Record summary
L2-Alphaproteobacteria ribosomal protein leader: an 85-nucleotide RNA from Salipiger bermudensis. Lineage of the source: Bacteria > Alphaproteobacteria > Roseobacteraceae > Salipiger > Salipiger bermudensis. It is annotated as a cis-regulatory leader. For this family Rfam cites "Discovery of 20 novel ribosomal leader candidates in bacteria and archaea" (Eckert and Weinberg, BMC Microbiol, 2020).
[Rfam]
RNA sequence: GGCCACCUGCGGAUCCAUCCGGGAUCGAGGGGGCUUUCACAUAGGGUGGACCCGUUUCACCCGUUCUGCAAACGGAAGACAGAAG
Numbered sequence: 001g002g003c004c005a006c007c008u009g010c011g012g013a014u015c016c017a018u019c020c021g022g023g024a025u026c027g028a029g030g031g032g033g034c035u036u037u038c039a040c041a042u043a044g045g046g047u048g049g050a051c052c053c054g055u056u057u058c059a060c061c062c063g064u065u066c067u068g069c070a071a072a073c074g075g076a077a078g079a080c081a082g083a084a085g
Stems, first nucleotide, its partner, number of pairs: 001035004006031003044062007